[Rfam]
RNA sequence: GCCAAAUGAUGUAAAACAGAUGACAUCAGCACUCUGUGCAAUGCUGACUUCCAUCUAUCACCCAUUACUGAUGGCU
Dot-bracket structure: ((((........................((((...))))................................)))).